[Rfam]
RNA: MIR5565 microRNA precursor family
RNA sequence: GUAGUCGGAUUCACAUCAAUCCACAUGUGUUGGGGUGGAUUGGAGUGGAACUUAAAGUAAAUUACACCCGAAUCCACCCCAACACGUGUAGAUUAAGGUGAAUCCGAUA
Number, nucleotide and partner (000 for none) at each position: 001g000002u000003a000004g108005u107006c106007g105008g104009a103010u102011u101012c100013a099014c098015a000016u096017c000018a094019a093020u092021c091022c000023a089024c088025a087026u086027g085028u084029g083030u082031u081032g080033g000034g000035g077036u076037g075038g074039a073040u072041u071042g000043g069044a000045g067046u066047g065048g000049a000050a000051c000052u000053u000054a000055a000056a000057g000058u000059a000060a000061a000062u000063u000064a000065c047066a046067c045068c000069c043070g000071a041072a040073u039074c038075c037076a036077c035078c000079c000080c032081a031082a030083c029084a028085c027086g026087u025088g024089u023090a000091g021092a020093u019094u018095a000096a016097g000098g014099u013100g012101a011102a010103u009104c008105c007106g006107a005108u004109a000